[Rfam]
The record is a 126-nucleotide sequence from Callithrix jacchus, which matches "Small nucleolar RNA SNORA64/SNORA10 family" in Rfam. The match comes from Rfam's covariance-model search (61 bits). The family's RNA type in Rfam is H/ACA-box small nucleolar RNA.
RNA sequence: CCUCUCUCAGCUCUGUGUAGUUGCACUUGGCUUCACCCGUGUAACUUUCGUAAAGGGGAAGGAAAGAAAAGAUUCAGGACCUCAGAUGGGCCUUACUGUGGCCUCUCCUUGAGGGGAGCAAUAAGC
Number, nucleotide and partner (000 for none) at each position: 001c000002c066003u065004c000005u063006c062007u061008c000009a000010g000011c058012u057013c056014u055015g000016u000017g000018u000019a046020g045021u044022u043023g042024c041025a040026c039027u000028u000029g000030g000031c000032u000033u000034c000035a000036c000037c000038c000039g026040u025041g024042u023043a022044a021045c020046u019047u000048u000049c000050g000051u000052a000053a000054a000055g014056g013057g012058g011059a000060a000061g007062g006063a005064a000065a003066g002067a000068a000069a000070a000071g000072a000073u000074u116075c115076a000077g000078g000079a000080c000081c000082u000083c000084a000085g107086a106087u000088g104089g103090g102091c101092c100093u000094u000095a000096c000097u000098g000099u000100g092101g091102c090103c089104u088105c000106u086107c085108c000109u000110u000111g000112a000113g000114g000115g075116g074117a000118g000119c000120a000121a000122u000123a000124a000125g000126c000